Small nucleolar RNA Z43: a 90-nucleotide sequence from Malus domestica.
RNA sequence: GGACUGUGAGGAUUUGUAUUUUGGUCUCUCGUCGUAAUGGCCUCAUUGGCCUUGCCGACCACUCUGAUAUUGCAUCAGUUGUCUGAGUCC
Numbered sequence: 001g002g003a004c005u006g007u008g009a010g011g012a013u014u015u016g017u018a019u020u021u022u023g024g025u026c027u028c029u030c031g032u033c034g035u036a037a038u039g040g041c042c043u044c045a046u047u048g049g050c051c052u053u054g055c056c057g058a059c060c061a062c063u064c065u066g067a068u069a070u071u072g073c074a075u076c077a078g079u080u081g082u083c084u085g086a087g088u089c090c
Stems, first nucleotide, its partner, number of pairs: 001090004044048001

The match comes from Rfam's covariance-model search (53 bits). Gene Ontology terms of the family: RNA processing and nucleolus. The base pairs follow the family's consensus structure, which was predicted with PFOLD.